[Rfam]
A member of the RNA family "Selenocysteine insertion sequence 1" from Labrus bergylta, 66 nucleotides long.
The family's consensus secondary structure is taken from published work.
By type it is a cis-regulatory element.
The organism belongs to Labrus, within Eukaryota.
RNA sequence: CUGGCGUUCAUGAAGGUCUGGCCUUAAAGCAGUCUCUGCGGGGCCUGACCGGAUUUCUCCCGCCAG
Numbered sequence: 001c002u003g004g005c006g007u008u009c010a011u012g013a014a015g016g017u018c019u020g021g022c023c024u025u026a027a028a029g030c031a032g033u034c035u036c037u038g039c040g041g042g043g044c045c046u047g048a049c050c051g052g053a054u055u056u057c058u059c060c061c062g063c064c065a066g
Stems, first nucleotide, its partner, number of pairs: 001066005015050004020045005030038003